[Rfam]
RNA sequence: GAACACCUCAAAGAAUCGCUAUCAAAGCACCACAUACGGGGCAGUAGUUUCCUUAAAUUACUUGCUCAACUUAUUGCUUUGGGGAAAGUCCUCGGACAUAUGGCAGAAAGUGUCGUCCAUAAUGUGGCAUUACCAUUCGUUGGGACUUUUAUGCCAAAGAAAGAGUUUACUCUUGAGGCUUUGGGGUUGUCACGAUUGGUUUCGUUGGUCAUAGCACAGUUAUGCGAUUGUGGUCUCUUCUGAUCUUUGAAGAUAGGGAGGUCAUAACUUAACGAGGCUUACUCUUGGGGUGUU
Numbered sequence: 001g002a003a004c005a006c007c008u009c010a011a012a013g014a015a016u017c018g019c020u021a022u023c024a025a026a027g028c029a030c031c032a033c034a035u036a037c038g039g040g041g042c043a044g045u046a047g048u049u050u051c052c053u054u055a056a057a058u059u060a061c062u063u064g065c066u067c068a069a070c071u072u073a074u075u076g077c078u079u080u081g082g083g084g085a086a087a088g089u090c091c092u093c094g095g096a097c098a099u100a101u102g103g104c105a106g107a108a109a110g111u112g113u114c115g116u117c118c119a120u121a122a123u124g125u126g127g128c129a130u131u132a133c134c135a136u137u138c139g140u141u142g143g144g145a146c147u148u149u150u151a152u153g154c155c156a157a158a159g160a161a162a163g164a165g166u167u168u169a170c171u172c173u174u175g176a177g178g179c180u181u182u183g184g185g186g187u188u189g190u191c192a193c194g195a196u197u198g199g200u201u202u203c204g205u206u207g208g209u210c211a212u213a214g215c216a217c218a219g220u221u222a223u224g225c226g227a228u229u230g231u232g233g234u235c236u237c238u239u240c241u242g243a244u245c246u247u248u249g250a251a252g253a254u255a256g257g258g259a260g261g262u263c264a265u266a267a268c269u270u271a272a273c274g275a276g277g278c279u280u281a282c283u284c285u286u287g288g289g290g291u292g293u294u
Base pairs, nucleotide, nucleotide: 002294003293004292005291006290007289008288009287010286011285014229015228016227017226018225019224022082023081024080025079026078027077028076039067040066041065042064043063044062086280087279088278090277091276092275093274102114103113104112105111115130116129118127132200133199134198137195138194139193140192146185147184148183153179154178155177162173163172164171165170231264232263233262234261235260236259237258238257239256
The family of this 294-nucleotide sequence from Racocetra fulgida is "RNase MRP". The family is grouped with related families in Rfam's "RNaseP clan". For this family Rfam cites "Identification and analysis of ribonuclease P and MRP RNA in a broad range of eukaryotes" (Piccinelli et al., Nucleic Acids Res, 2005). The organism belongs to Racocetra, within Eukaryota. About the family: RNase MRP is an enzymatically active ribonucleoprotein with two distinct roles in eukaryotes. In mitochondria it plays a direct role in the initiation of mitochondrial DNA replication. In the nucleus it is involved in precursor rRNA processing, where it cleaves the internal transcribed spacer 1 between 18S and 5.8S rRNAs. Despite distinct functions, RNase MRP has been shown to be evolutionarily related to RNase P. Like eukaryotic RNase P, RNase MRP is not catalytically active without associated protein subunits. A search with the family's covariance model found it, with a score of 126 bits. By type it is a ribozyme. Rfam links the family to the GO terms ribonuclease MRP complex, ribonuclease MRP activity and rRNA processing.